Shown here is a 167-nucleotide RNA from Heliobacterium mobile, a member of the family "M-box riboswitch aptamer (ykoK leader)". Rfam's curators write: M-box riboswitch, also know as ykoK leader is described as a metaloregulatory RNA that sense divalent metals and function as a genetic control element of genes related to divalent metal transport in bacteria. It was first reported upstream of the B.subtilis ykoK gene and genes with related functions in other bacteria. The organism belongs to Heliobacterium, within Bacteria. Rfam 15.1 lists 1,095 matches to the family in 932 species.

RNA sequence: AGGAGUUCUCGUUAGGUGAGGCUCCUGUACAGACAUAGGCUACUGCCCAGAAAUGUCGAGAGACGCCGAUGGGUUGAACAGGCUUGUACCGAAUUAAGGUCUAGCUUAAUGUAGCUGAGCAUGGCUCUAAGCUGUACAGUGCUAAAACUGGACGAAGGGGAGUUCAU
Numbered sequence: 001a002g003g004a005g006u007u008c009u010c011g012u013u014a015g016g017u018g019a020g021g022c023u024c025c026u027g028u029a030c031a032g033a034c035a036u037a038g039g040c041u042a043c044u045g046c047c048c049a050g051a052a053a054u055g056u057c058g059a060g061a062g063a064c065g066c067c068g069a070u071g072g073g074u075u076g077a078a079c080a081g082g083c084u085u086g087u088a089c090c091g092a093a094u095u096a097a098g099g100u101c102u103a104g105c106u107u108a109a110u111g112u113a114g115c116u117g118a119g120c121a122u123g124g125c126u127c128u129a130a131g132c133u134g135u136a137c138a139g140u141g142c143u144a145a146a147a148c149u150g151g152a153c154g155a156a157g158g159g160g161a162g163u164u165c166a167u
Stems, first nucleotide, its partner, number of pairs: 005163006011153002013097001015149003020143003025139008039115005045074005054065004081106004088100003117127003